[Rfam]
RNA sequence: GGAACCUUUAAUUCAGUCCCGUGAGGCUGGCAAGGUUGUGCGUAAUCAGUAUGUCUUUAUGCGCAAUUUUUGUGCAUAAAUGUGUGCGUUUCUAUGCACCUUGCCAGGUCGCCAGGCAAGGUGCUUUUUUU
Numbered sequence: 001g002g003a004a005c006c007u008u009u010a011a012u013u014c015a016g017u018c019c020c021g022u023g024a025g026g027c028u029g030g031c032a033a034g035g036u037u038g039u040g041c042g043u044a045a046u047c048a049g050u051a052u053g054u055c056u057u058u059a060u061g062c063g064c065a066a067u068u069u070u071u072g073u074g075c076a077u078a079a080a081u082g083u084g085u086g087c088g089u090u091u092c093u094a095u096g097c098a099c100c101u102u103g104c105c106a107g108g109u110c111g112c113c114a115g116g117c118a119a120g121g122u123g124c125u126u127u128u129u130u131u
Base pairs, nucleotide, nucleotide: 003037004036005035006034007033008032013030014029015028016027017026018025052084053083054082056080057079058078059077060076061075062074063073064072065071094126096124097123098122099121100120101119102118103117104116105115107113
Dot-bracket structure: ..((((((....((((((......)))))).))))))..............(((.((((((((((.....)))))))))).))).........(.((((((((((.(.....).)))))))))).).....